Rfam assigns this 447-nucleotide RNA sequence from Paramesorhizobium deserti to the family "Bacterial RNase P class A". It scores 314 bits against the family's covariance model. The family's consensus secondary structure is taken from published work. By type it is a ribozyme.
RNA sequence: UCAGUUGGCCGGGCAGCCGCGCCUGUUAUAUGUCGAAAGACGGCAGGUGAGGAAAGUCCGGGCUCCAUGGAAACACGGUGCCGGGUAAUGCCCGGCGGGGGCGACCCCAGGGAAAGUGCCACAGAAAGCAAACCGCCCCGUCUUCCGUUGCGCCGCGUCUUUUGGGGAUCAUGCCACAGGACCGGGCGCAAGGGAUGACGGGGUAAGGGUGAAAGGGUGGGGUAAGAGCCCACCGCGUCUCCGGCAACGGCGACGGCACGGUAAACCCCACCGGGAGCAAGACCGAAUAGGGACGGCGUGCCGGACGAAAGUCCGGCGAUCUGUUUCCGGAUCAGCCGUCCGGGUAGGUUGCAAGAGGCGGUUGGCGACAUCCGUCCCAGAUGAAUGGCUGCCGCGUCGGGCGCAGGCCCGGCCAUACAGAACCCGGCUUACAGGCCAACUGACAUU
Numbered sequence: 001u002c003a004g005u006u007g008g009c010c011g012g013g014c015a016g017c018c019g020c021g022c023c024u025g026u027u028a029u030a031u032g033u034c035g036a037a038a039g040a041c042g043g044c045a046g047g048u049g050a051g052g053a054a055a056g057u058c059c060g061g062g063c064u065c066c067a068u069g070g071a072a073a074c075a076c077g078g079u080g081c082c083g084g085g086u087a088a089u090g091c092c093c094g095g096c097g098g099g100g101g102c103g104a105c106c107c108c109a110g111g112g113a114a115a116g117u118g119c120c121a122c123a124g125a126a127a128g129c130a131a132a133c134c135g136c137c138c139c140g141u142c143u144u145c146c147g148u149u150g151c152g153c154c155g156c157g158u159c160u161u162u163u164g165g166g167g168a169u170c171a172u173g174c175c176a177c178a179g180g181a182c183c184g185g186g187c188g189c190a191a192g193g194g195a196u197g198a199c200g201g202g203g204u205a206a207g208g209g210u211g212a213a214a215g216g217g218u219g220g221g222g223u224a225a226g227a228g229c230c231c232a233c234c235g236c237g238u239c240u241c242c243g244g245c246a247a248c249g250g251c252g253a254c255g256g257c258a259c260g261g262u263a264a265a266c267c268c269c270a271c272c273g274g275g276a277g278c279a280a281g282a283c284c285g286a287a288u289a290g291g292g293a294c295g296g297c298g299u300g301c302c303g304g305a306c307g308a309a310a311g312u313c314c315g316g317c318g319a320u321c322u323g324u325u326u327c328c329g330g331a332u333c334a335g336c337c338g339u340c341c342g343g344g345u346a347g348g349u350u351g352c353a354a355g356a357g358g359c360g361g362u363u364g365g366c367g368a369c370a371u372c373c374g375u376c377c378c379a380g381a382u383g384a385a386u387g388g389c390u391g392c393c394g395c396g397u398c399g400g401g402c403g404c405a406g407g408c409c410c411g412g413c414c415a416u417a418c419a420g421a422a423c424c425c426g427g428c429u430u431a432c433a434g435g436c437c438a439a440c441u442g443a444c445a446u447u
Stems, first nucleotide, its partner, number of pairs: 001443010011432001012393007020049008054430003058427005063277004072326002076273005081095005096110001097108004111268002116266002118262003133208002135204008216234006235257001236255004241250003281350004291341006318333005357376005363370002